[Rfam]
RNA sequence: ACCCUCCACUCCCUUUCCCAUCAGAUCUGAACACUGGUCUUGGUGGUCGUAAAGGAGAAAAAGACAUGUUGAAGCCGGCCUCACAGCCUUAGAGUCUGAUAUACAGCAUGGGAGUAGUUUCAAACAAGG
Numbered sequence: 001a002c003c004c005u006c007c008a009c010u011c012c013c014u015u016u017c018c019c020a021u022c023a024g025a026u027c028u029g030a031a032c033a034c035u036g037g038u039c040u041u042g043g044u045g046g047u048c049g050u051a052a053a054g055g056a057g058a059a060a061a062a063g064a065c066a067u068g069u070u071g072a073a074g075c076c077g078g079c080c081u082c083a084c085a086g087c088c089u090u091a092g093a094g095u096c097u098g099a100u101a102u103a104c105a106g107c108a109u110g111g112g113a114g115u116a117g118u119u120u121c122a123a124a125c126a127a128g129g
Stems, first nucleotide, its partner, number of pairs: 004057004018046005024039004075117001077115001079114001081112001090108001
Rfam assigns this 129-nucleotide sequence from Octodon degus to the family "Small nucleolar RNA SNORA61". From the family's description: ACA61 is a member of the H/ACA class of snoRNA that guide the sites of modification of uridines to pseudouridines. Pairs were carried over by alignment from the consensus structure, which was predicted with PFOLD. Lineage of the source: Eukaryota > Craniata > Sarcopterygii > Mammalia > Octodon. Its family is annotated with RNA processing and nucleolus in the Gene Ontology. The family's RNA type in Rfam is H/ACA-box small nucleolar RNA.